[Rfam]
RNA sequence: UCCGGUCCUCGGUAGUGGCGUCCGGGCAGGCAGCCCGUGCGUUUCGAUCGAAGACCGGC
Numbered sequence: 001u002c003c004g005g006u007c008c009u010c011g012g013u014a015g016u017g018g019c020g021u022c023c024g025g026g027c028a029g030g031c032a033g034c035c036c037g038u039g040c041g042u043u044u045c046g047a048u049c050g051a052a053g054a055c056c057g058g059c
Base pairs, nucleotide, nucleotide: 002058003057004056005055006054007053009051010050011049012048013047017043018042019041020040021039023037024036025035026034027033
Actino-pnp RNA: a 59-nucleotide sequence from Stackebrandtia endophytica. A search with the family's covariance model found it, with a score of 63 bits. The family's consensus secondary structure is taken from published work.